[Rfam]
Nucleotides: 366
Base pairs, nucleotide, nucleotide: 001362002361003360004359005358006357007356020335021334022333023332024331025330026329027328028327033323034322035321038318039317040316041315044309045308046307047306048305049065050064051063052062054078055077056076057075058074059073060072115141116140117139118138119137120136121135144180145179146178147177148176149175151171152170153169154168155167156166157165160194161193162192163191164190200228201227202226203225204224207221208220213244214243215242216241217240247283248282249281250279251278252277253276258271259270260269262301263300264299265298339355340354341353342352343351
Number, partner (000 for none) and nucleotide at each position: 001362g002361g003360g004359g005358a006357c007356g008000u009000u010000c011000u012000g013000g014000a015000u016000u017000c018000g019000a020335c021334a022333g023332g024331g025330a026329u027328a028327g029000g030000u031000c032000g033323g034322a035321c036000u037000u038318a039317a040316g041315u042000u043000g044309c045308g046307a047306g048305u049065c050064g051063a052062g053000c054078u055077g056076g057075g058074u059073g060072u061000c062052c063051u064050c065049g066000u067000a068000u069000a070000a071000a072060a073059c074058g075057c076056c077055c078054a079000u080000c081000g082000c083000c084000u085000a086000u087000a088000g089000u090000u091000g092000g093000c094000a095000a096000a097000g098000a099000a100000g101000a102000u103000a104000a105000c106000a107000a108000u109000u110000u111000c112000g113000c114000u115141u116140u117139a118138g119137c120136a121135g122000c123000g124000g125000c126000g127000u128000a129000a130000a131000a132000a133000c134000c135121c136120u137119g138118u139117u140116a141115g142000c143000g144180g145179u146178u147177c148176c149175u150000c151171c152170c153169u154168u155167c156166a157165u158000c159000a160194c161193c162192c163191a164190u165157g166156u167155g168154a169153a170152g171151g172000a173000u174000c175149a176148g177147g178146g179145a180144c181000u182000c183000a184000c185000u186000u187000a188000u189000a190164g191163u192162g193161g194160g195000a196000u197000a198000c199000g200228c201227u202226a203225c204224g205000g206000a207221u208220c209000c210000u211000c212000c213244a214243c215242c216241u217240g218000a219000g220208g221207a222000a223000a224204c225203g226202u227201a228200g229000a230000a231000g232000a233000g234000a235000u236000u237000a238000a239000u240217c241216a242215g243214g244213u245000u246000a247283g248282u249281c250279a251278u252277a253276c254000g255000g256000a257000a258271g259270c260269c261000u262301g263300u264299u265298a266000g267000u268000u269260g270259g271258c272000u273000g274000a275000a276253g277252u278251a279250u280000c281249g282248g283247c284000g285000a286000a287000u288000g289000a290000u291000a292000a293000u294000u295000a296000a297000c298265u299264g300263a301262c302000u303000a304000c305048a306047c307046u308045c309044g310000u311000a312000g313000a314000c315041g316040c317039u318038u319000c320000u321035g322034u323033u324000g325000c326000g327028u328027u329026a330025u331024c332023u333022c334021u335020g336000g337000a338000c339355g340354u341353g342352g343351g344000u345000u346000c347000g348000a349000u350000u351343c352342c353341c354340a355339c356007c357006g358005u359004c360003u361002c362001c363000a364000c365000c366000a